[Rfam]
Background: Shown here is a 100-nucleotide RNA from Anguilla anguilla, a member of the family "mir-454 microRNA precursor family".
RNA sequence: UGGAUUGGUCCUGAGUCCUGGAACCCUAUCAGUAUUGUCUGCUGUCCACUUUGUUCAGAGUAGUGCAAUAUUGCUUAUAGGGUUUCAGUGUUUGGGCAGC
Numbered sequence: 001u002g003g004a005u006u007g008g009u010c011c012u013g014a015g016u017c018c019u020g021g022a023a024c025c026c027u028a029u030c031a032g033u034a035u036u037g038u039c040u041g042c043u044g045u046c047c048a049c050u051u052u053g054u055u056c057a058g059a060g061u062a063g064u065g066c067a068a069u070a071u072u073g074c075u076u077a078u079a080g081g082g083u084u085u086c087a088g089u090g091u092u093u094g095g096g097c098a099g100c
Base pairs, nucleotide, nucleotide: 020086021085022084023083024082025081026080027079028078029077030073031072032071033070034069035068036067037066038065039063040062041061042060043059

The base pairs follow the family's consensus structure, which was predicted with RNAalifold. Rfam links the family to the GO terms RISC complex and miRNA-mediated post-transcriptional gene silencing. On this family, see Jima et al., Blood 2010: "Deep sequencing of the small RNA transcriptome of normal and malignant human B cells identifies hundreds of novel microRNAs". It scores 80 bits against the family's covariance model. Lineage of the source: Eukaryota > Neopterygii > Teleostei > Elopomorpha > Anguilla. Rfam 15.1 lists 696 matches to the family in 601 species.